[Rfam]
Nucleotides: 074
Stems, first nucleotide, its partner, number of pairs: 004071003008066001010064007020054006029047003
Number, partner (000 for none) and nucleotide at each position: 001000u002000u003000a004071g005070g006069u007000g008066u009000g010064g011063g012062a013061a014060c015059u016058c017000a018000g019000c020054c021053u022052g023051u024050g025049a026000c027000u028000u029047g030046u031045g032000u033000u034000u035000u036000a037000a038000u039000u040000a041000u042000u043000u044000u045031c046030a047029c048000a049025u050024c051023a052022c053021a054020g055000a056000c057000u058016g059015a060014g061013u062012u063011c064010u065000a066008a067000c068000u069006a070005c071004c072000u073000g074000g
Shown here is a 74-nucleotide sequence from Ladona fulva, a member of the family "mir-11 microRNA precursor family". For this family Rfam cites "MicroRNAs of Bombyx mori identified by Solexa sequencing" (Liu et al., BMC Genomics, 2010). Rfam links the family to the GO terms negative regulation of cell death, cellular response to gamma radiation and negative regulation of apoptotic process. Lineage of the source: Eukaryota > Ecdysozoa > Odonata > Epiprocta > Ladona.